[Rfam]
RNA sequence: GCUUGGUGCUUAGCUUCUUUCACCAAGCAUAUUACACGCGGAUAACCGCCAAAGGAGAA
Numbered sequence: 001g002c003u004u005g006g007u008g009c010u011u012a013g014c015u016u017c018u019u020u021c022a023c024c025a026a027g028c029a030u031a032u033u034a035c036a037c038g039c040g041g042a043u044a045a046c047c048g049c050c051a052a053a054g055g056a057g058a059a
Stems, first nucleotide, its partner, number of pairs: 002027007014057006038049004